The family of this 187-nucleotide sequence from Thalassotalea sp. PP2-459 is "Lysine riboswitch aptamer". It scores 99 bits against the family's covariance model. The source organism's lineage runs through Bacteria, Pseudomonadota, Alteromonadales, Colwelliaceae and Thalassotalea.
RNA sequence: GGUUCCAGAAGAGGUGCGAUAGCCAGGUAGUUAGUUUUAGGAACCACUAUUCCAAUGAUAGCUAAUGAGGGGGACUAUCGCCGAGGACUUAUUUUUGUGUGGAAAAAUAAUGUUCGGUUACUAAGGUUGAAUCCUUAGGGCUGUCACCUCUGUUGUAAAACAGAUGGGGUGGAGGGCUUCUGGCUGA
Numbered sequence: 001g002g003u004u005c006c007a008g009a010a011g012a013g014g015u016g017c018g019a020u021a022g023c024c025a026g027g028u029a030g031u032u033a034g035u036u037u038u039a040g041g042a043a044c045c046a047c048u049a050u051u052c053c054a055a056u057g058a059u060a061g062c063u064a065a066u067g068a069g070g071g072g073g074a075c076u077a078u079c080g081c082c083g084a085g086g087a088c089u090u091a092u093u094u095u096u097g098u099g100u101g102g103a104a105a106a107a108u109a110a111u112g113u114u115c116g117g118u119u120a121c122u123a124a125g126g127u128u129g130a131a132u133c134c135u136u137a138g139g140g141c142u143g144u145c146a147c148c149u150c151u152g153u154u155g156u157a158a159a160a161c162a163g164a165u166g167g168g169g170u171g172g173a174g175g176g177c178u179u180c181u182g183g184c185u186g187a
Base pairs, nucleotide, nucleotide: 006182007181008180009179010178011177016081017080018079019078020077021076022075024073030066031065032064033063034062035061036060085115086114087113088112089110090109091108092107093106094105095104096103116142117141118140119139121138122137123136124135125134126133144172145171146170147169148168149167150166